[Rfam]
RNA sequence: GGGCUUGUACUGGUUUCGACGGGGGUUUUGAAGUUGGAGAAGCCAUCCGCGGGACGGGACCGCGCAGUAAACCGUAACUUAAAAAUAAACGCAGACAAUAAUAAAUUAGCGUACGCUGCCUAAUUUCGGCAGCAGUCGGCUCCGGACUGCCCGCGGUCUGGAUUACCGGCUUCAACACUUGCGGGGCACUUCGUUUCCAAAGCUUUGAGGAGAUGGAAGACUUUAUGAAGCUACCGAAGAUGGCAGCCUGUCAUUAGGCGGCAAUCCGGGGGAAUCUCAAAAUAAUGACUGUGAUGGGAGAUGCUCUGAUGGAGAGGCUUUCGGACGCGGGUUCGAUUCCCGCCAGGUCCAUAC
Numbered sequence: 001g002g003g004c005u006u007g008u009a010c011u012g013g014u015u016u017c018g019a020c021g022g023g024g025g026u027u028u029u030g031a032a033g034u035u036g037g038a039g040a041a042g043c044c045a046u047c048c049g050c051g052g053g054a055c056g057g058g059a060c061c062g063c064g065c066a067g068u069a070a071a072c073c074g075u076a077a078c079u080u081a082a083a084a085a086u087a088a089a090c091g092c093a094g095a096c097a098a099u100a101a102u103a104a105a106u107u108a109g110c111g112u113a114c115g116c117u118g119c120c121u122a123a124u125u126u127c128g129g130c131a132g133c134a135g136u137c138g139g140c141u142c143c144g145g146a147c148u149g150c151c152c153g154c155g156g157u158c159u160g161g162a163u164u165a166c167c168g169g170c171u172u173c174a175a176c177a178c179u180u181g182c183g184g185g186g187c188a189c190u191u192c193g194u195u196u197c198c199a200a201a202g203c204u205u206u207g208a209g210g211a212g213a214u215g216g217a218a219g220a221c222u223u224u225a226u227g228a229a230g231c232u233a234c235c236g237a238a239g240a241u242g243g244c245a246g247c248c249u250g251u252c253a254u255u256a257g258g259c260g261g262c263a264a265u266c267c268g269g270g271g272g273a274a275u276c277u278c279a280a281a282a283u284a285a286u287g288a289c290u291g292u293g294a295u296g297g298g299a300g301a302u303g304c305u306c307u308g309a310u311g312g313a314g315a316g317g318c319u320u321u322c323g324g325a326c327g328c329g330g331g332u333u334c335g336a337u338u339c340c341c342g343c344c345a346g347g348u349c350c351a352u353a354c
Stems, first nucleotide, its partner, number of pairs: 001350007020323010033310007041302001043297005048064005054075004115133005134171006141162007149187004190217009201232006234271002239266003243262001246259003250289004255282001327343005
Dot-bracket structure: (((((((............((((((((((...(((((((.(.((((((((((.[[[[..))))).......]]]].......................................(((((.........)))))((((((.(((((((.[[[[...)))))))...))))))............]]]]..(((((((((..[[[[[[..))))))))).........]]]]]].((...(((.(..(((.[[[[.[.)))..).)))...))..........]...]]]]...)))))....).)))))))...))))))))))...(((((.......))))))))))))....
Shown here is a 354-nucleotide RNA sequence from Sellimonas intestinalis, a member of the family "transfer-messenger RNA". NCBI's taxonomy places the organism under Bacteria, Bacillati, Lachnospirales, Lachnospiraceae, Sellimonas. On this family, see Williams and Bartel, RNA 1996: "Phylogenetic analysis of tmRNA secondary structure". Rfam classes the family as a non-coding RNA gene. About the family: Bacterial tmRNA, also known as 10Sa RNA or SsrA, is named for its dual tRNA and mRNA-like properties. Rfam links the family to the GO term RNA catabolic process.